[Rfam]
RNA sequence: GCAGUCGGACAGUCUGUCGCUUGCAUUCUUGUGAUGUAAGAGGAAAGUCCGGGCAACACAGAGCAUUCCGCUUCUUAAUGGGAAGUUGCUCGCGAGAGUAAAUCAGUGCAGAAGAAAACAACCGCCCCUCACGCUCCUAAGGGCUUCGAGGGGUAAGGGUGAGAAGGUGGGGUAAGAGCCCACCGGCUGAACGGUGACGUCUCAGGCCGUGCACAUCGGAAGUUGAAAGUUCAUGUAAACCGACGCAGUAAGAGUUGCUCGCUCAAAUCUCUAUGGAGAUGGGUCGGAGGGUAGAACGAUAGAGUGGGUCGGCAACGGCUCACCAAGAUAAAUGACAGACGGCUCACCCCGCGUGAGAGACAAAACCCGGCUCAUCGGCCGGCUGCUCCU
Numbered sequence: 001g002c003a004g005u006c007g008g009a010c011a012g013u014c015u016g017u018c019g020c021u022u023g024c025a026u027u028c029u030u031g032u033g034a035u036g037u038a039a040g041a042g043g044a045a046a047g048u049c050c051g052g053g054c055a056a057c058a059c060a061g062a063g064c065a066u067u068c069c070g071c072u073u074c075u076u077a078a079u080g081g082g083a084a085g086u087u088g089c090u091c092g093c094g095a096g097a098g099u100a101a102a103u104c105a106g107u108g109c110a111g112a113a114g115a116a117a118a119c120a121a122c123c124g125c126c127c128c129u130c131a132c133g134c135u136c137c138u139a140a141g142g143g144c145u146u147c148g149a150g151g152g153g154u155a156a157g158g159g160u161g162a163g164a165a166g167g168u169g170g171g172g173u174a175a176g177a178g179c180c181c182a183c184c185g186g187c188u189g190a191a192c193g194g195u196g197a198c199g200u201c202u203c204a205g206g207c208c209g210u211g212c213a214c215a216u217c218g219g220a221a222g223u224u225g226a227a228a229g230u231u232c233a234u235g236u237a238a239a240c241c242g243a244c245g246c247a248g249u250a251a252g253a254g255u256u257g258c259u260c261g262c263u264c265a266a267a268u269c270u271c272u273a274u275g276g277a278g279a280u281g282g283g284u285c286g287g288a289g290g291g292u293a294g295a296a297c298g299a300u301a302g303a304g305u306g307g308g309u310c311g312g313c314a315a316c317g318g319c320u321c322a323c324c325a326a327g328a329u330a331a332a333u334g335a336c337a338g339a340c341g342g343c344u345c346a347c348c349c350c351g352c353g354u355g356a357g358a359g360a361c362a363a364a365a366c367c368c369g370g371c372u373c374a375u376c377g378g379c380c381g382g383c384u385g386c387u388c389c390u
Stems, first nucleotide, its partner, number of pairs: 001386008010377001011375001012340007020040008046372002049370005054225004062274001066221005071085005086101001088099004102216002106214005122158002124154007166184006186207001187205004191200003229297004240287005267280004304323008

Rfam assigns this 390-nucleotide RNA sequence from Alloprevotella sp. Lung230 to the family "Bacterial RNase P class A". Lineage of the source: Bacteria > Pseudomonadati > Bacteroidota > Bacteroidales > Alloprevotella. It scores 221 bits against the family's covariance model. The base pairs follow the family's consensus structure, which is taken from published work. It is annotated as a ribozyme.